Shown here is a 437-nucleotide part of an RNA from Tremella mesenterica, a member of the family "Eukaryotic large subunit ribosomal RNA". The literature on the family includes a 2002 paper in BMC Bioinformatics by Cannone et al., "The comparative RNA web (CRW) site: an online database of comparative sequence and structure information for ribosomal, intron, and other RNAs".
RNA sequence: GGUAGUAGCAAAUAUUCAAGUGAGAUCCUUGAAGACUGAAGUGGAGAAAGGUUCCAUGUUAACAGCAGUUGGACAUGGGUCAGUCGAUCCUAAGAGAUAGGGAAGCUCCGUUUCAAAGUGCGCGAUCAUCCGCGCCGCCUAUCGAAAGGGAAUCCGGUUAAGAUUCCGGAACCGGGACGUGGAUCUUUGACGGUGACGUAAGUGAAGUCGGAGACGUUGGUGGGGGCCCCGGGAAGAGUUCUCUUUUCUCCUUAACCGCCUAGGACCACGGAAUCGGAUUAUCCGGAGAUGAGGUCACAUGGUGGGUAGAGCACGACGGUUCUGUCGUGUCCGGUGCGUCCCUGACAGCCCUUGAAAAUCCGACGGAACGUAUAAGUCUCACGCCCGGUCGUACUCAUAACCGCAGCAGGUCUCCAAGGUGAACAGCCUCUAGUUGA
Numbered sequence: 001g002g003u004a005g006u007a008g009c010a011a012a013u014a015u016u017c018a019a020g021u022g023a024g025a026u027c028c029u030u031g032a033a034g035a036c037u038g039a040a041g042u043g044g045a046g047a048a049a050g051g052u053u054c055c056a057u058g059u060u061a062a063c064a065g066c067a068g069u070u071g072g073a074c075a076u077g078g079g080u081c082a083g084u085c086g087a088u089c090c091u092a093a094g095a096g097a098u099a100g101g102g103a104a105g106c107u108c109c110g111u112u113u114c115a116a117a118g119u120g121c122g123c124g125a126u127c128a129u130c131c132g133c134g135c136c137g138c139c140u141a142u143c144g145a146a147a148g149g150g151a152a153u154c155c156g157g158u159u160a161a162g163a164u165u166c167c168g169g170a171a172c173c174g175g176g177a178c179g180u181g182g183a184u185c186u187u188u189g190a191c192g193g194u195g196a197c198g199u200a201a202g203u204g205a206a207g208u209c210g211g212a213g214a215c216g217u218u219g220g221u222g223g224g225g226g227c228c229c230c231g232g233g234a235a236g237a238g239u240u241c242u243c244u245u246u247u248c249u250c251c252u253u254a255a256c257c258g259c260c261u262a263g264g265a266c267c268a269c270g271g272a273a274u275c276g277g278a279u280u281a282u283c284c285g286g287a288g289a290u291g292a293g294g295u296c297a298c299a300u301g302g303u304g305g306g307u308a309g310a311g312c313a314c315g316a317c318g319g320u321u322c323u324g325u326c327g328u329g330u331c332c333g334g335u336g337c338g339u340c341c342c343u344g345a346c347a348g349c350c351c352u353u354g355a356a357a358a359u360c361c362g363a364c365g366g367a368a369c370g371u372a373u374a375a376g377u378c379u380c381a382c383g384c385c386c387g388g389u390c391g392u393a394c395u396c397a398u399a400a401c402c403g404c405a406g407c408a409g410g411u412c413u414c415c416a417a418g419g420u421g422a423a424c425a426g427c428c429u430c431u432a433g434u435u436g437a
Stems, first nucleotide, its partner, number of pairs: 015033006034435004043415004049395002054078006063071002085391003089149002094143002096112003100109003121134002153170005173387004178383005183377002190199003207364006216349004221344007229334003232252002235249003256305005265295003269291002274286004312329007401410002417429004
Lineage of the source: Eukaryota > Opisthokonta > Tremellales > Tremellaceae > Tremella mesenterica.